[Rfam]
RNA sequence: CGGUGAAUAUUCUUGCUGUUCUGAUUUUGUAAUAAUUGUGGCAGGCUAAACAUUCUGUAUAUCAAGACCAUGCAUGUGUUCCUAGAUCUAGUUCUUCCCCUAGUCUGGUUUUAUCAAUGCUGGUGAUUAAC
Numbered sequence: 001c002g003g004u005g006a007a008u009a010u011u012c013u014u015g016c017u018g019u020u021c022u023g024a025u026u027u028u029g030u031a032a033u034a035a036u037u038g039u040g041g042c043a044g045g046c047u048a049a050a051c052a053u054u055c056u057g058u059a060u061a062u063c064a065a066g067a068c069c070a071u072g073c074a075u076g077u078g079u080u081c082c083u084a085g086a087u088c089u090a091g092u093u094c095u096u097c098c099c100c101u102a103g104u105c106u107g108g109u110u111u112u113a114u115c116a117a118u119g120c121u122g123g124u125g126a127u128u129a130a131c
Stems, first nucleotide, its partner, number of pairs: 005055001016044005022038005067124004072120002082108005088103004
Dot-bracket structure: ....(..........(((((.(((((.......))))).)))))..........)...........((((.((........(((((.((((........)))))))))..........)))))).......
About this RNA: Small nucleolar RNA SNORA72: a 131-nucleotide RNA sequence from Canis lupus. Lineage of the source: Eukaryota > Eumetazoa > Bilateria > Chordata > Canis lupus. For this family Rfam cites "The family of box ACA small nucleolar RNAs is defined by an evolutionarily conserved secondary structure and ubiquitous sequence elements essential for RNA accumulation" (Ganot et al., Genes Dev, 1997). Its family is annotated with RNA processing and nucleolus in the Gene Ontology. A search with the family's covariance model found it, with a score of 117 bits. By type it is an H/ACA-box small nucleolar RNA.